Record summary:
A member of the RNA family "Small nucleolar RNA Z266" from Dendrobium nobile, 98 nucleotides long.
RNA sequence: AGUUGGCAAGAAUGAUGAAUCAAUUAGAUGUGCGAGGCAAUUUGUCCCAUGAACUGAACCUUUGAGGCAUAGAAUAUUGUUUCUGACUUGCUCAAACC
Numbered sequence: 001a002g003u004u005g006g007c008a009a010g011a012a013u014g015a016u017g018a019a020u021c022a023a024u025u026a027g028a029u030g031u032g033c034g035a036g037g038c039a040a041u042u043u044g045u046c047c048c049a050u051g052a053a054c055u056g057a058a059c060c061u062u063u064g065a066g067g068c069a070u071a072g073a074a075u076a077u078u079g080u081u082u083c084u085g086a087c088u089u090g091c092u093c094a095a096a097c098c
Base pairs, nucleotide, nucleotide: 002097003096004095005092006091007090008089009088010087
Dot-bracket structure: .(((((((((............................................................................))))))..))).
Overview: By type it is a C/D-box small nucleolar RNA. The match comes from Rfam's covariance-model search (61 bits). NCBI's taxonomy places the organism under Eukaryota, Tracheophyta, Liliopsida, Petrosaviidae, Dendrobium.